[Rfam]
RNA sequence: AACGUGCUCCGGGGUCGGUGAAAGUCCGAACCGGCGGUGAUAGUCCGCGACCCGCACUCCCGAUUCGCUCGGGUGGACGGUUGACCUGGUGGAAUUCCGGGACCGACGGUAAUGAGAUCGAGAGGUCUCUCAGUCCGGAUAGGAGGAAGCACGGG
Dot-bracket structure: ..((((((((.....(((.......)))...((((((.....[[))))...((.........................))....(((((.......)))))]])).(((.........................))).......)).))))))..
Numbered sequence: 001a002a003c004g005u006g007c008u009c010c011g012g013g014g015u016c017g018g019u020g021a022a023a024g025u026c027c028g029a030a031c032c033g034g035c036g037g038u039g040a041u042a043g044u045c046c047g048c049g050a051c052c053c054g055c056a057c058u059c060c061c062g063a064u065u066c067g068c069u070c071g072g073g074u075g076g077a078c079g080g081u082u083g084a085c086c087u088g089g090u091g092g093a094a095u096u097c098c099g100g101g102a103c104c105g106a107c108g109g110u111a112a113u114g115a116g117a118u119c120g121a122g123a124g125g126u127c128u129c130u131c132a133g134u135c136c137g138g139a140u141a142g143g144a145g146g147a148a149g150c151a152c153g154g155g
Stems, first nucleotide, its partner, number of pairs: 003153006009146002016028003032105002034048004043103002052080002085101005107137003

The record is a 155-nucleotide sequence from Conyzicola lurida, which matches "FMN riboswitch aptamer (RFN element)" in Rfam.
Rfam links the family to the GO term FMN binding.
The organism belongs to Conyzicola, within Bacteria.